[Rfam]
RNA sequence: UGUACACUGAUUUCCACCGACCUGUGUCUUCGCGCUCCUCCCUGCUCCGGUAGUGGAGUUGAGUGUGGGGACAGUUCGACGACGAUGGAGCCACUUUUUCAAUAUGUGUCAAUUUUCCUGUCGACAGGUCGGAGAGCAAUACCAUCAAUUGCGCUAUAUCUCGUUGAUCUUUGUAGCUCUUCGUGAGUUCGGUGAUACUUGAUGGCAAGAUUGUUGGCGGCCGUCUAUUCUGAUCCAAUGCAAGCCGUUUAGGCCAUUAUGCGAGGACGAACCCGGCGUAGCCACAUAC
Numbered sequence: 001u002g003u004a005c006a007c008u009g010a011u012u013u014c015c016a017c018c019g020a021c022c023u024g025u026g027u028c029u030u031c032g033c034g035c036u037c038c039u040c041c042c043u044g045c046u047c048c049g050g051u052a053g054u055g056g057a058g059u060u061g062a063g064u065g066u067g068g069g070g071a072c073a074g075u076u077c078g079a080c081g082a083c084g085a086u087g088g089a090g091c092c093a094c095u096u097u098u099u100c101a102a103u104a105u106g107u108g109u110c111a112a113u114u115u116u117c118c119u120g121u122c123g124a125c126a127g128g129u130c131g132g133a134g135a136g137c138a139a140u141a142c143c144a145u146c147a148a149u150u151g152c153g154c155u156a157u158a159u160c161u162c163g164u165u166g167a168u169c170u171u172u173g174u175a176g177c178u179c180u181u182c183g184u185g186a187g188u189u190c191g192g193u194g195a196u197a198c199u200u201g202a203u204g205g206c207a208a209g210a211u212u213g214u215u216g217g218c219g220g221c222c223g224u225c226u227a228u229u230c231u232g233a234u235c236c237a238a239u240g241c242a243a244g245c246c247g248u249u250u251a252g253g254c255c256a257u258u259a260u261g262c263g264a265g266g267a268c269g270a271a272c273c274c275g276g277c278g279u280a281g282c283c284a285c286a287u288a289c
Stems, first nucleotide, its partner, number of pairs: 018131008026072004031067002034064004038058004043052003080123005086111003090107002143213002148211003153206001163199001166190002169187003172183002219283003222278004234267003240262003244254003

The family of this 289-nucleotide RNA sequence from Venturia nashicola is "A. fumigatus sRNA Afu_309". On this family, see Jochl et al., Nucleic Acids Res 2008: "Small ncRNA transcriptome analysis from Aspergillus fumigatus suggests a novel mechanism for regulation of protein synthesis". It scores 73 bits against the family's covariance model. The source organism's lineage runs through Eukaryota, Ascomycota, Dothideomycetes, Venturiales and Venturia. Pairs were carried over by alignment from the consensus structure, which was predicted with WAR.